[Rfam]
The family of this 132-nucleotide sequence from Microcaecilia unicolor is "Small nucleolar RNA SNORA3/SNORA45 family". Rfam 15.1 lists 2,080 matches to the family in 639 species. The family is grouped with related families in Rfam's "SNORA3 clan". On this family, see Huttenhofer et al., EMBO J 2001: "RNomics: an experimental approach that identifies 201 candidates for novel, small, non-messenger RNAs in mouse". Rfam classes the family as an H/ACA-box small nucleolar RNA. Rfam links the family to the GO terms RNA processing and nucleolus. The members of this family belong to the H/ACA class of snoRNAs which are thought to guide the sites of modification of uridines to pseudouridines. This family includes mouse snoMBI-28 and human homologues ACA3 (SNORA3) and ACA3-2 (SNORA45). Both ACA3 and ACA3-2 share the same host gene. MBI-28, ACA3 and ACA3-2 are all predicted to guide the pseudouridylation of residues in 28S rRNA.
RNA sequence: AUCGAGACUAGAGUCACAUCUUGGCAUUGCUUGUUGUCUUGGUGUGCUAUUGUGCUCGAAGAAAAACUACUGUUCUUUAUUCACUGACUGAAGUUUCACAUAACCCAGUCGGUCACCAGUUCAGUAACAUUU
Dot-bracket structure: .(((((((...((.((((((..((((........))))..))))))))...)).)))))..........(((..((......(((((.((...(.......)...)).)))))....))..)))........